[Rfam]
RNA sequence: AGCUCUUCACAAUGCUUCAAGCAUUGCGCUGCUUGUCACAAGUCACAACCAGUCACAAGCAGCGCAAUGCUUGAAGCAUUGUGAAGAGCU
Numbered sequence: 001a002g003c004u005c006u007u008c009a010c011a012a013u014g015c016u017u018c019a020a021g022c023a024u025u026g027c028g029c030u031g032c033u034u035g036u037c038a039c040a041a042g043u044c045a046c047a048a049c050c051a052g053u054c055a056c057a058a059g060c061a062g063c064g065c066a067a068u069g070c071u072u073g074a075a076g077c078a079u080u081g082u083g084a085a086g087a088g089c090u
Stems, first nucleotide, its partner, number of pairs: 001090003005086006012079008022069013